[Rfam]
RNA sequence: CCUGCGGUCAGACGGAAAGACCCCGUGCACCUUUACUGUAGCUUUGCGCUGGCCAUCGUGUCGGCAUGUGUAGGAUAGGUGGUAGGCUUUGAAGCCGGGGCGCCAGCUCUGGUGGAGCCAUCCUUGAAAUACCACCCUUGGCGUUAUGAUGGUCUAACCGCGGAUCCUGAUCGGGUCCCGGGACCGCGCAUGGCAGGCAGUUUGACUGGGGCGGUCGCCUCCCAAAGCGUAACGGAGGCGUACGAAGGUGGGCUCAGAGCGGUCGGAAAUCGCUCGUCGCGUGCAAUGGCAUAAGCCCGCUUGACUGCGAGACGGACAGGUCGAGCAGAGACGAAAGUCGGUCAUAGUGAUCCGGUGGUCCCGCGUGGGUGGGCCAUCGCUCAACGGAUAAAAGGUACGCCGGGGAUAACAGGCUGAUGACCCCCAAGAGUCCAUAUCGACGGGGUCGUUUGGCACCUCGAUGUCGGCUCAUCACAUCCUGGGGCUGGAGAAGGUCCCAAGGGUUCGGCUGUUCGCCGAUUAAAGUGGUACGUGAGCUGGGUUCAGAACGUCGUGAGACAGUUCGGUCCCUAUCUGCCGUGGGUGUC
Numbered sequence: 001c002c003u004g005c006g007g008u009c010a011g012a013c014g015g016a017a018a019g020a021c022c023c024c025g026u027g028c029a030c031c032u033u034u035a036c037u038g039u040a041g042c043u044u045u046g047c048g049c050u051g052g053c054c055a056u057c058g059u060g061u062c063g064g065c066a067u068g069u070g071u072a073g074g075a076u077a078g079g080u081g082g083u084a085g086g087c088u089u090u091g092a093a094g095c096c097g098g099g100g101c102g103c104c105a106g107c108u109c110u111g112g113u114g115g116a117g118c119c120a121u122c123c124u125u126g127a128a129a130u131a132c133c134a135c136c137c138u139u140g141g142c143g144u145u146a147u148g149a150u151g152g153u154c155u156a157a158c159c160g161c162g163g164a165u166c167c168u169g170a171u172c173g174g175g176u177c178c179c180g181g182g183a184c185c186g187c188g189c190a191u192g193g194c195a196g197g198c199a200g201u202u203u204g205a206c207u208g209g210g211g212c213g214g215u216c217g218c219c220u221c222c223c224a225a226a227g228c229g230u231a232a233c234g235g236a237g238g239c240g241u242a243c244g245a246a247g248g249u250g251g252g253c254u255c256a257g258a259g260c261g262g263u264c265g266g267a268a269a270u271c272g273c274u275c276g277u278c279g280c281g282u283g284c285a286a287u288g289g290c291a292u293a294a295g296c297c298c299g300c301u302u303g304a305c306u307g308c309g310a311g312a313c314g315g316a317c318a319g320g321u322c323g324a325g326c327a328g329a330g331a332c333g334a335a336a337g338u339c340g341g342u343c344a345u346a347g348u349g350a351u352c353c354g355g356u357g358g359u360c361c362c363g364c365g366u367g368g369g370u371g372g373g374c375c376a377u378c379g380c381u382c383a384a385c386g387g388a389u390a391a392a393a394g395g396u397a398c399g400c401c402g403g404g405g406a407u408a409a410c411a412g413g414c415u416g417a418u419g420a421c422c423c424c425c426a427a428g429a430g431u432c433c434a435u436a437u438c439g440a441c442g443g444g445g446u447c448g449u450u451u452g453g454c455a456c457c458u459c460g461a462u463g464u465c466g467g468c469u470c471a472u473c474a475c476a477u478c479c480u481g482g483g484g485c486u487g488g489a490g491a492a493g494g495u496c497c498c499a500a501g502g503g504u505u506c507g508g509c510u511g512u513u514c515g516c517c518g519a520u521u522a523a524a525g526u527g528g529u530a531c532g533u534g535a536g537c538u539g540g541g542u543u544c545a546g547a548a549c550g551u552c553g554u555g556a557g558a559c560a561g562u563u564c565g566g567u568c569c570c571u572a573u574c575u576g577c578c579g580u581g582g583g584u585g586u587c
Stems, first nucleotide, its partner, number of pairs: 001583008010575003014570002022404004027400002029396005035201004042193002045190004051154010062143002065140002068137001078136005085119003094113008158181003162178006204216004217239006240385001242342002248300006255279001257275006281290002305328004311322003330339003353379007361372002413454003417451001418448007428438002465540001466538004470532001471529005478503002481498006505519005546564004550559003

Bacterial large subunit ribosomal RNA: a 587-nucleotide part of an RNA from Methylobacterium radiodurans. The base pairs follow the family's consensus structure, which is taken from published work.